Rfam assigns this 249-nucleotide sequence from Medicago truncatula to the family "MIR2655 microRNA precursor family".
A search with the family's covariance model found it, with a score of 151 bits.
Gene Ontology terms of the family: miRNA-mediated post-transcriptional gene silencing and RISC complex.
[Rfam]
RNA sequence: CUCUUAACUAUUAAAAGUUUCGUUUUCGUCCUUUAACUUACUUUUUUGGUUUCGUUUUGGUCCCUUAACUCUUCAUCCGUCAACCACUUUGGUCCUUUAUGUUAGGAUGAAUGUAUUAUAGUUAAGGGAUCAAAAUGAAACAAAAAAAUAAGUUAAGGGACCAAAACGAAACUUUUAAUAGUUAAGGGACCAAAAGAAAACUCAAAAAUAAGUUAUGGGACCGAAACAAAACUUUUAAUAGUUAAGGAA
Numbered sequence: 001c002u003c004u005u006a007a008c009u010a011u012u013a014a015a016a017g018u019u020u021c022g023u024u025u026u027c028g029u030c031c032u033u034u035a036a037c038u039u040a041c042u043u044u045u046u047u048g049g050u051u052u053c054g055u056u057u058u059g060g061u062c063c064c065u066u067a068a069c070u071c072u073u074c075a076u077c078c079g080u081c082a083a084c085c086a087c088u089u090u091g092g093u094c095c096u097u098u099a100u101g102u103u104a105g106g107a108u109g110a111a112u113g114u115a116u117u118a119u120a121g122u123u124a125a126g127g128g129a130u131c132a133a134a135a136u137g138a139a140a141c142a143a144a145a146a147a148a149u150a151a152g153u154u155a156a157g158g159g160a161c162c163a164a165a166a167c168g169a170a171a172c173u174u175u176u177a178a179u180a181g182u183u184a185a186g187g188g189a190c191c192a193a194a195a196g197a198a199a200a201c202u203c204a205a206a207a208a209u210a211a212g213u214u215a216u217g218g219g220a221c222c223g224a225a226a227c228a229a230a231a232c233u234u235u236u237a238a239u240a241g242u243u244a245a246g247g248a249a
Base pairs, nucleotide, nucleotide: 002247003246004245005244006243007242008241023226024225025224028221029220031218032217034215035214036213037212038211039210040209042208043207044206046204048202049201050200